[Rfam]
RNA sequence: AAGGCGUGCAUUGAGACCCGAAACCUUAUUCUGCUAGGUUUACGGGAGCAUCAACACCCCGAGA
Numbered sequence: 001a002a003g004g005c006g007u008g009c010a011u012u013g014a015g016a017c018c019c020g021a022a023a024c025c026u027u028a029u030u031c032u033g034c035u036a037g038g039u040u041u042a043c044g045g046g047a048g049c050a051u052c053a054a055c056a057c058c059c060c061g062a063g064a
Base pairs, nucleotide, nucleotide: 003060004059006057008055017046018045019044020043022040023039024038025037026036
Trypanosomatid snoRNA TB11Cs4H2: a 64-nucleotide RNA sequence from Trypanosoma theileri. The source organism's lineage runs through Eukaryota, Discoba, Kinetoplastea, Trypanosomatidae and Trypanosoma.